[Rfam]
RNA sequence: GGUUCUGACCCAGUAUCUUAAGGUACUAAGGCGUCCGACCAUCCACUUGUGGUUGCGUCGAAAACCUCAAUUUUUGGACAGCCUUUUCGGGGUAUCCGGGAGGGCAAC
Numbered sequence: 001g002g003u004u005c006u007g008a009c010c011c012a013g014u015a016u017c018u019u020a021a022g023g024u025a026c027u028a029a030g031g032c033g034u035c036c037g038a039c040c041a042u043c044c045a046c047u048u049g050u051g052g053u054u055g056c057g058u059c060g061a062a063a064a065c066c067u068c069a070a071u072u073u074u075u076g077g078a079c080a081g082c083c084u085u086u087u088c089g090g091g092g093u094a095u096c097c098g099g100g101a102g103g104g105c106a107a108c
Base pairs, nucleotide, nucleotide: 007035008034009031010030013027016025018023036060037059038058039057040055041054043052044051085104086103087102091097092096
RNA: SL2 RNA